[Rfam]
RNA sequence: GGAAUAUAAGAACCCGUCUCUUAACUUUUAACUAAAAAAAACUAAGAACUGGUUCUUAAAUAAGAGUUUUAAGAGCCGGUUUUUAACUUUUUUUAGUUAAAAGUUAAUAGACAAAUUCUUAUAUUCC
Numbered sequence: 001g002g003a004a005u006a007u008a009a010g011a012a013c014c015c016g017u018c019u020c021u022u023a024a025c026u027u028u029u030a031a032c033u034a035a036a037a038a039a040a041a042c043u044a045a046g047a048a049c050u051g052g053u054u055c056u057u058a059a060a061u062a063a064g065a066g067u068u069u070u071a072a073g074a075g076c077c078g079g080u081u082u083u084u085a086a087c088u089u090u091u092u093u094u095a096g097u098u099a100a101a102a103g104u105u106a107a108u109a110g111a112c113a114a115a116u117u118c119u120u121a122u123a124u125u126c127c
Stems, first nucleotide, its partner, number of pairs: 001127012016112004021107019043085006

This 127-nucleotide RNA from Brassica cretica belongs to the Rfam family "MIR9563 microRNA precursor family". Pairs were carried over by alignment from the consensus structure, which was predicted with RNAalifold.